RNA sequence: ACUAACACAAUAUGUGGAAGUAGUAGUUUUGACUCGUUUUUUACAGAAAGGUGACCCACGGCUGAGAGGUCUCCAUCAACGACCAAAGGGAAGUAGUCCACAUCGUUGCUUUUCUGAAAUUGUAGUAGGGAAAGUCGGUUGCAGCCGUUAUCUGUAUUAAAGAGUGUAUGGAACAUUAAAUGAUAGCAUUAGUAUAUCUAUUUCAUACGAAUAAAGGUGGUACCGCGAGCUCCUCGUCCUUUAA
Numbered sequence: 001a002c003u004a005a006c007a008c009a010a011u012a013u014g015u016g017g018a019a020g021u022a023g024u025a026g027u028u029u030u031g032a033c034u035c036g037u038u039u040u041u042u043a044c045a046g047a048a049a050g051g052u053g054a055c056c057c058a059c060g061g062c063u064g065a066g067a068g069g070u071c072u073c074c075a076u077c078a079a080c081g082a083c084c085a086a087a088g089g090g091a092a093g094u095a096g097u098c099c100a101c102a103u104c105g106u107u108g109c110u111u112u113u114c115u116g117a118a119a120u121u122g123u124a125g126u127a128g129g130g131a132a133a134g135u136c137g138g139u140u141g142c143a144g145c146c147g148u149u150a151u152c153u154g155u156a157u158u159a160a161a162g163a164g165u166g167u168a169u170g171g172a173a174c175a176u177u178a179a180a181u182g183a184u185a186g187c188a189u190u191a192g193u194a195u196a197u198c199u200a201u202u203u204c205a206u207a208c209g210a211a212u213a214a215a216g217g218u219g220g221u222a223c224c225g226c227g228a229g230c231u232c233c234u235c236g237u238c239c240u241u242u243a244a
Stems, first nucleotide, its partner, number of pairs: 007106002015100004027088005041075001050074002053071003109134007136147003165209009214241004225237005
RNA: T-box leader